RNA: eL15-Euryarchaeota ribosomal protein leader
Organism: Halococcus agarilyticus
RNA sequence: CCUGCGUGCGAUGUUCGCAUUGCAGGUCGGAAUGUGGCCAGCGUGGUCCAUCGGGCCACGCGGCUGAACCACCAA
Numbered sequence: 001c002c003u004g005c006g007u008g009c010g011a012u013g014u015u016c017g018c019a020u021u022g023c024a025g026g027u028c029g030g031a032a033u034g035u036g037g038c039c040a041g042c043g044u045g046g047u048c049c050a051u052c053g054g055g056c057c058a059c060g061c062g063g064c065u066g067a068a069c070c071a072c073c074a075a
Stems, first nucleotide, its partner, number of pairs: 001026005029070002036065004